[Rfam]
RNA sequence: GGGCCGCCUCCGCCGAGUCCGGUCCCGACCGGAGCCGGGGACCCAACACGACACCGGGGUGAAUCGGAGCACCAGCCGUGCUCCGUAGGACCGCCUUCCGAGGUCCGAACCCGACAGCUAACCCGGUAGGCGGUCCUUGGAAGGAGU
Numbered sequence: 001g002g003g004c005c006g007c008c009u010c011c012g013c014c015g016a017g018u019c020c021g022g023u024c025c026c027g028a029c030c031g032g033a034g035c036c037g038g039g040g041a042c043c044c045a046a047c048a049c050g051a052c053a054c055c056g057g058g059g060u061g062a063a064u065c066g067g068a069g070c071a072c073c074a075g076c077c078g079u080g081c082u083c084c085g086u087a088g089g090a091c092c093g094c095c096u097u098c099c100g101a102g103g104u105c106c107g108a109a110c111c112c113g114a115c116a117g118c119u120a121a122c123c124c125g126g127u128a129g130g131c132g133g134u135c136c137u138u139g140g141a142a143g144g145a146g147u
Stems, first nucleotide, its partner, number of pairs: 011132004018033005034127006044056001057112003065085006088106004